Source information:
Rfam assigns this 89-nucleotide sequence from Streptococcus infantis to the family "Cia-dependent small RNA csRNA1".
[Rfam]
RNA sequence: AUUGAGUAACCUUUAUUUAAUAAAAAUCCUAAACUUUUCUUUUUCAUAAUAAUCUCCCUAAAGAAGCCACCAAAUCAGGUGGCUUUUUG
Numbered sequence: 001a002u003u004g005a006g007u008a009a010c011c012u013u014u015a016u017u018u019a020a021u022a023a024a025a026a027u028c029c030u031a032a033a034c035u036u037u038u039c040u041u042u043u044u045c046a047u048a049a050u051a052a053u054c055u056c057c058c059u060a061a062a063g064a065a066g067c068c069a070c071c072a073a074a075u076c077a078g079g080u081g082g083c084u085u086u087u088u089g
Stems, first nucleotide, its partner, number of pairs: 001021009063086009
Record summary
NCBI's taxonomy places the organism under Bacteria, Bacillota, Bacilli, Streptococcaceae, Streptococcus infantis. The base pairs follow the family's consensus structure.